[Rfam]
RNA: Bacterial small signal recognition particle RNA
Organism: Gloeobacterales cyanobacterium ES-bin-141
RNA sequence: AGCCUGGACCCGUGCGACUUAGACGCCUGAACCGUGUCAGGAUCGGAAGGUAGCAGCACUAAGGGAUGCUCGAAGUAGGCGCGGCUGUCCGGGUUUUU
Numbered sequence: 001a002g003c004c005u006g007g008a009c010c011c012g013u014g015c016g017a018c019u020u021a022g023a024c025g026c027c028u029g030a031a032c033c034g035u036g037u038c039a040g041g042a043u044c045g046g047a048a049g050g051u052a053g054c055a056g057c058a059c060u061a062a063g064g065g066a067u068g069c070u071c072g073a074a075g076u077a078g079g080c081g082c083g084g085c086u087g088u089c090c091g092g093g094u095u096u097u098u
Stems, first nucleotide, its partner, number of pairs: 004092005010084005017076004022071001026065003034059004042051003